[Rfam]
RNA: mir-30 microRNA precursor family
Organism: Salmo salar
RNA sequence: UGUAAACAUCCUACACUCUCAGCUGUGACAUCAUCGAGCUGGGAGAGGGGUGUUUACGCU
Numbered sequence: 001u002g003u004a005a006a007c008a009u010c011c012u013a014c015a016c017u018c019u020c021a022g023c024u025g026u027g028a029c030a031u032c033a034u035c036g037a038g039c040u041g042g043g044a045g046a047g048g049g050g051u052g053u054u055u056a057c058g059c060u
Stems, first nucleotide, its partner, number of pairs: 001058012016045009
Dot-bracket structure: ((((((((((((...(((((((((............))))))))).))))))))))))..